[Rfam]
RNA sequence: GAUUUCCGAGGCUUUCCUGCCUCGGCCUCAUUGAAGC
Dot-bracket structure: .....(((((((......)))))))............
RNA: CRISPR RNA direct repeat element